Shown here is a 45-nucleotide RNA from Desulfonema ishimotonii, a member of the family "Acido-Lenti-1 RNA".
A search with the family's covariance model found it, with a score of 52 bits.
Taxonomically the source falls in Desulfonema (Bacteria, Desulfobacteria, Desulfobacterales, Desulfococcaceae).
The family's RNA type in Rfam is small RNA.
[Rfam]
RNA sequence: CCUGGGGCUUUGCCCCAGGCUGUAAUAUUCCGCCCCUUCGGGGCU
Numbered sequence: 001c002c003u004g005g006g007g008c009u010u011u012g013c014c015c016c017a018g019g020c021u022g023u024a025a026u027a028u029u030c031c032g033c034c035c036c037u038u039c040g041g042g043g044c045u
Stems, first nucleotide, its partner, number of pairs: 001019008032044005